The record is a 146-nucleotide RNA sequence from Clostridium sp. CAG:62, which matches "Ribosomal protein L10 leader" in Rfam. Rfam links the family to the GO term regulation of gene expression. By type it is a cis-regulatory leader. From the family's description: This family is a putative r-protein leader autoregulatory structure found in B. subtilis and other low-GC Gram-positive bacteria. It is located in the 5' untranslated regions of mRNAs encoding ribosomal proteins L10 and L12 (rplJ-rplL). A Rho-independent transcription terminator structure that is probably involved in regulation is included at the 3' end. It scores 62 bits against the family's covariance model.

RNA sequence: GACUAAAGUUUAUAACUGCCGUAGACAGCAAGUAUAGCUUUGCUAUGUAAGUGCGGAUGCCGCUUGCCGAGGAAGAUUGUGAAUGCAAUCAUAGUGAGAUUAUAUCCUCUGUCUGCGUGCGCAGGCAGAGGAUUUUUUAUAAAUGU
Numbered sequence: 001g002a003c004u005a006a007a008g009u010u011u012a013u014a015a016c017u018g019c020c021g022u023a024g025a026c027a028g029c030a031a032g033u034a035u036a037g038c039u040u041u042g043c044u045a046u047g048u049a050a051g052u053g054c055g056g057a058u059g060c061c062g063c064u065u066g067c068c069g070a071g072g073a074a075g076a077u078u079g080u081g082a083a084u085g086c087a088a089u090c091a092u093a094g095u096g097a098g099a100u101u102a103u104a105u106c107c108u109c110u111g112u113c114u115g116c117g118u119g120c121g122c123a124g125g126c127a128g129a130g131g132a133u134u135u136u137u138u139a140u141a142a143a144u145g146u
Stems, first nucleotide, its partner, number of pairs: 028067006034046003106131010